[Rfam]
RNA sequence: GUCACGCGAGCGGCAACGGCUAACGGUGAGUACCCUCACCCUCUGGCCUACCUUAAGAACGGGAUAGUUCUUCAGGCUGUUUGCGGGUUCCGUUAGGUGGCGCUGUAGAGGCCACUCGGGCUCGACACUGCGUUACCUCGCAGGUCACCGAUACACGGGUUUCGUGAUCGUGGUCUGUGUAGCGCCCGGACCAAUCCGGCCAGUG
Number, nucleotide and partner (000 for none) at each position: 001g000002u000003c000004a000005c000006g000007c000008g000009a000010g000011c000012g000013g000014c000015a000016a000017c000018g048019g047020c046021u045022a044023a000024c000025g040026g039027u038028g037029a036030g035031u000032a000033c000034c000035c030036u029037c028038a027039c026040c025041c000042u000043c000044u022045g021046g020047c019048c018049u000050a000051c076052c075053u074054u000055a072056a071057g070058a069059a068060c067061g000062g000063g000064a000065u000066a000067g060068u059069u058070c057071u056072u055073c000074a053075g052076g051077c000078u000079g000080u000081u000082u000083g000084c000085g123086g122087g121088u120089u000090c119091c118092g117093u000094u000095a000096g113097g112098u111099g000100g000101c000102g000103c110104u109105g000106u000107a000108g000109a104110g103111g098112c097113c096114a000115c000116u000117c092118g091119g090120g088121c087122u086123c085124g000125a000126c000127a000128c000129u000130g000131c000132g000133u000134u000135a000136c000137c000138u000139c000140g000141c177142a176143g175144g174145u173146c172147a171148c000149c170150g169151a168152u167153a000154c166155a165156c164157g163158g000159g000160u000161u000162u000163c157164g156165u155166g154167a152168u151169c150170g149171u147172g146173g145174u144175c143176u142177g141178u000179g000180u000181a000182g000183c000184g000185c000186c199187c198188g197189g196190a195191c000192c000193a000194a000195u190196c189197c188198g187199g186200c000201c000202a000203g000204u000205g000